A member of the RNA family "Small nucleolar RNA SNORA69" from Molossus molossus, 118 nucleotides long. By type it is an H/ACA-box small nucleolar RNA. The source organism's lineage runs through Eukaryota, Euteleostomi, Amniota, Boreoeutheria and Molossus.
RNA sequence: UGAGCAUAUUUUCUUUAAAAGCUUAACAAAUUUAUCCUGCUGAAAGAAAAUCUUGUGUUGAUCCUUUUUGAUUUUGCCUUUAUGAGGGUAAGAUCAUGACCGAAUGACAUGGACAAUU
Numbered sequence: 001u002g003a004g005c006a007u008a009u010u011u012u013c014u015u016u017a018a019a020a021g022c023u024u025a026a027c028a029a030a031u032u033u034a035u036c037c038u039g040c041u042g043a044a045a046g047a048a049a050a051u052c053u054u055g056u057g058u059u060g061a062u063c064c065u066u067u068u069u070g071a072u073u074u075u076g077c078c079u080u081u082a083u084g085a086g087g088g089u090a091a092g093a094u095c096a097u098g099a100c101c102g103a104a105u106g107a108c109a110u111g112g113a114c115a116a117u118u
Stems, first nucleotide, its partner, number of pairs: 001025005052112001054111007062103002069096012
Record summary:
Pairs were carried over by alignment from the consensus structure, which was predicted with PFOLD. Rfam's curators write: U69 is a member of the H/ACA class of small nucleolar RNAs (snoRNAs) which act as guides in the the modification of uridines to pseudouridines.